[Rfam]
RNA: Fluoride riboswitch aptamer (crcB RNA motif)
RNA sequence: UGAGCCGAUGGGGAUGGGGUUCCCCCGAAACCGCCCUUGAAGGGCUGAUGACUCCUGCCGAGCC
Numbered sequence: 001u002g003a004g005c006c007g008a009u010g011g012g013g014a015u016g017g018g019g020u021u022c023c024c025c026c027g028a029a030a031c032c033g034c035c036c037u038u039g040a041a042g043g044g045c046u047g048a049u050g051a052c053u054c055c056u057g058c059c060g061a062g063c064c
Base pairs, nucleotide, nucleotide: 010026011025012024013023016055017054018053019052020051021050033045034044035043036042